[Rfam]
RNA sequence: UAGUAUCGGUGAAGAUGCCGAUUACCCGCAACGGGACGAAAAGACCCCGUGAACCUUUACUGCAGCUUAGCACUGUGACCGGGUGUGCGAUGUGUAGGAUAGUCAGGAGGCAGUGAGACGGCGACGCCAGUCGUCGUGGAGCCGUUGUUGAAAUACUGACCUUCGCACAUUUGGUCUCUAACACGCUGAAGCGUGGACACUGCUUGGUGGGUAGUUUGACUGGGGUGGUCGCCUCCAAAAGAGUAACGGAGGCUUCUAAAGGUACCCUCAGGCCGAUUGGUAACCGGCCGCAGAGUGUAAUGGCACAAGGGUGCUUGACUGGGAGACUAACAAGUCGCACAGGUAGGAAACUAGAGCAUAGUGAUCCGGUGGUUCCGCAUGGAAGGGCCAUCGCUCAAAGGAUAAAAGGUACUCCGGGGAUAACAGGCUGAUCCCUCCCAAGAGCUCAUAUCGACGGAGUGGUUUGGCACCUCGAUGUCGGCUCGUCACAUCCCGGGGCUGGAGAAGGUCCCAAGGGUUAGGCUGUUCGCCUAUUAAAGUGGCACGCGAGCUGGGUUCAGAACGUCGUGAGACAGUUCGGUCUCUAUCUGUUGUGGGCGC
Numbered sequence: 001u002a003g004u005a006u007c008g009g010u011g012a013a014g015a016u017g018c019c020g021a022u023u024a025c026c027c028g029c030a031a032c033g034g035g036a037c038g039a040a041a042a043g044a045c046c047c048c049g050u051g052a053a054c055c056u057u058u059a060c061u062g063c064a065g066c067u068u069a070g071c072a073c074u075g076u077g078a079c080c081g082g083g084u085g086u087g088c089g090a091u092g093u094g095u096a097g098g099a100u101a102g103u104c105a106g107g108a109g110g111c112a113g114u115g116a117g118a119c120g121g122c123g124a125c126g127c128c129a130g131u132c133g134u135c136g137u138g139g140a141g142c143c144g145u146u147g148u149u150g151a152a153a154u155a156c157u158g159a160c161c162u163u164c165g166c167a168c169a170u171u172u173g174g175u176c177u178c179u180a181a182c183a184c185g186c187u188g189a190a191g192c193g194u195g196g197a198c199a200c201u202g203c204u205u206g207g208u209g210g211g212u213a214g215u216u217u218g219a220c221u222g223g224g225g226u227g228g229u230c231g232c233c234u235c236c237a238a239a240a241g242a243g244u245a246a247c248g249g250a251g252g253c254u255u256c257u258a259a260a261g262g263u264a265c266c267c268u269c270a271g272g273c274c275g276a277u278u279g280g281u282a283a284c285c286g287g288c289c290g291c292a293g294a295g296u297g298u299a300a301u302g303g304c305a306c307a308a309g310g311g312u313g314c315u316u317g318a319c320u321g322g323g324a325g326a327c328u329a330a331c332a333a334g335u336c337g338c339a340c341a342g343g344u345a346g347g348a349a350a351c352u353a354g355a356g357c358a359u360a361g362u363g364a365u366c367c368g369g370u371g372g373u374u375c376c377g378c379a380u381g382g383a384a385g386g387g388c389c390a391u392c393g394c395u396c397a398a399a400g401g402a403u404a405a406a407a408g409g410u411a412c413u414c415c416g417g418g419g420a421u422a423a424c425a426g427g428c429u430g431a432u433c434c435c436u437c438c439c440a441a442g443a444g445c446u447c448a449u450a451u452c453g454a455c456g457g458a459g460u461g462g463u464u465u466g467g468c469a470c471c472u473c474g475a476u477g478u479c480g481g482c483u484c485g486u487c488a489c490a491u492c493c494c495g496g497g498g499c500u501g502g503a504g505a506a507g508g509u510c511c512c513a514a515g516g517g518u519u520a521g522g523c524u525g526u527u528c529g530c531c532u533a534u535u536a537a538a539g540u541g542g543c544a545c546g547c548g549a550g551c552u553g554g555g556u557u558c559a560g561a562a563c564g565u566c567g568u569g570a571g572a573c574a575g576u577u578c579g580g581u582c583u584c585u586a587u588c589u590g591u592u593g594u595g596g597g598c599g600c
Stems, first nucleotide, its partner, number of pairs: 005022005025597008034589003038584002046418004051414002053410005059215004066207002069204004075178001077176014092161001102160005109143003118137008182195003218230004231253006254399001256356002262314006268294002271289005295304002319342003323338001325336003344353003367393007375386002427468003431465001432462002435459004442452002479554001480552004484546001485543005492517002495512006519533005560578004564573003
Rfam assigns this 600-nucleotide part of an RNA from Barnesiella sp. WM24 to the family "Bacterial large subunit ribosomal RNA". The base pairs follow the family's consensus structure, which is taken from published work.